[Rfam]
RNA: RAGATH-18 RNA
RNA sequence: CCUCUGGAGUGUCACAUCAAACGAUAGUAGGGUAGCCGAGGUCGGACACGAUGAACGAGGAA
Numbered sequence: 001c002c003u004c005u006g007g008a009g010u011g012u013c014a015c016a017u018c019a020a021a022c023g024a025u026a027g028u029a030g031g032g033u034a035g036c037c038g039a040g041g042u043c044g045g046a047c048a049c050g051a052u053g054a055a056c057g058a059g060g061a062a
Base pairs, nucleotide, nucleotide: 001060002059003058004057009049010048011047012046013045022044023043024042030037031036